[Rfam]
RNA: Streptococcus sRNA SpF59 (ldcC RNA)
Nucleotides: 053
Base pairs, nucleotide, nucleotide: 001045002044003043004042005041006020007019008018009017010016011015
Number, partner (000 for none) and nucleotide at each position: 001045u002044g003043a004042c005041c006020a007019c008018u009017c010016a011015g012000a013000u014000a015011u016010u017009g018008a019007g020006u021000u022000a023000a024000g025000c026000c027000c028000a029000g030000a031000c032000g033000g034000a035000c036000a037000g038000g039000c040000g041005g042004g043003u044002c045001a046000g047000a048000a049000g050000c051000u052000g053000a